The family of this 138-nucleotide RNA from a Syntrophomonadaceae bacterium is "Molybdenum/Tungsten riboswitch aptamer (Moco RNA motif)". Taxonomically the source falls in Syntrophomonadaceae (Bacteria, Bacillota, Clostridia, Eubacteriales). Pairs were carried over by alignment from the consensus structure, which is taken from published work. The match comes from Rfam's covariance-model search (50 bits).
[Rfam]
RNA sequence: UUAAUAUUGAGCCUCCGAGCUAAAGCUGCUUAACGGUUUUUCCUAUGGGGUCUUAGCCUGAGCUCUUGGCUCACGGGGUGCAAUUGCCGGAGACGGGUGUGCCUCCAUUAUGUGGGAAGGAGAUGCAUCAGGCAGCUU
Numbered sequence: 001u002u003a004a005u006a007u008u009g010a011g012c013c014u015c016c017g018a019g020c021u022a023a024a025g026c027u028g029c030u031u032a033a034c035g036g037u038u039u040u041u042c043c044u045a046u047g048g049g050g051u052c053u054u055a056g057c058c059u060g061a062g063c064u065c066u067u068g069g070c071u072c073a074c075g076g077g078g079u080g081c082a083a084u085u086g087c088c089g090g091a092g093a094c095g096g097g098u099g100u101g102c103c104u105c106c107a108u109u110a111u112g113u114g115g116g117a118a119g120g121a122g123a124u125g126c127a128u129c130a131g132g133c134a135g136c137u138u
Stems, first nucleotide, its partner, number of pairs: 011124001013122004019057005025051003029047001033044001035042002059073005076104007087096003105115002